Record summary
The family of this 110-nucleotide sequence from Maritimibacter alkaliphilus is "Guanidine-I riboswitch aptamer". Taxonomically the source falls in Maritimibacter alkaliphilus (Bacteria, Pseudomonadati, Pseudomonadota, Roseobacteraceae). Rfam describes the family as follows. This family represents a conserved RNA structure found upstream of the ykkC and yxkD genes in Bacillus subtilis and related genes in other bacteria. The function of this family is unclear although it has been suggested that it may function to switch on efflux pumps and detoxification systems in response to harmful environmental molecules.
RNA sequence: GUGCAGGACGCUUAGGGUUCCGCCGCGCCAAAGCGCGGGUCUGGUCCGAGAAGCGUCACCCAUCCGGCAAAUUCCGGCAGGGCACACGGCGGGCCAAAAUCCCGGGAGAC
Numbered sequence: 001g002u003g004c005a006g007g008a009c010g011c012u013u014a015g016g017g018u019u020c021c022g023c024c025g026c027g028c029c030a031a032a033g034c035g036c037g038g039g040u041c042u043g044g045u046c047c048g049a050g051a052a053g054c055g056u057c058a059c060c061c062a063u064c065c066g067g068c069a070a071a072u073u074c075c076g077g078c079a080g081g082g083c084a085c086a087c088g089g090c091g092g093g094c095c096a097a098a099a100u101c102c103c104g105g106g107a108g109a110c
Stems, first nucleotide, its partner, number of pairs: 007057006015047002020044002022041001023038006059082003064077004085105001087108001091103003